The record is a 129-nucleotide RNA from Oesophagostomum dentatum, which matches "Nematode snoRNA ceN39" in Rfam.
It is annotated as an H/ACA-box small nucleolar RNA.
[Rfam]
RNA sequence: CUCGCGGAUAGGAACCACUUAGUAUCUACUUGUGCUCUGUGGGCCGAUAAACCGCGUAUAUAAAACGCUGACUAUGGUCGCUCUUUUGGGAUAGUUGUCAAUAGUGCAUUACCAACUCAUCGAACAUGU
Number, nucleotide and partner (000 for none) at each position: 001c000002u000003c056004g055005c054006g053007g052008a000009u000010a000011g045012g044013a000014a000015c042016c041017a040018c039019u000020u000021a036022g035023u034024a033025u032026c000027u000028a000029c000030u000031u000032g025033u024034g023035c022036u021037c000038u000039g018040u017041g016042g015043g000044c012045c011046g000047a000048u000049a000050a000051a000052c007053c006054g005055c004056g003057u000058a000059u000060a000061u000062a000063a000064a000065a000066c000067g121068c000069u119070g118071a117072c000073u000074a000075u000076g113077g112078u111079c000080g107081c106082u000083c104084u103085u000086u101087u100088g000089g099090g098091a000092u000093a000094g000095u000096u000097g000098u090099c089100a087101a086102u000103a084104g083105u000106g081107c080108a000109u000110u000111a078112c077113c076114a000115a000116c000117u071118c070119a069120u000121c067122g000123a000124a000125c000126a000127u000128g000129u000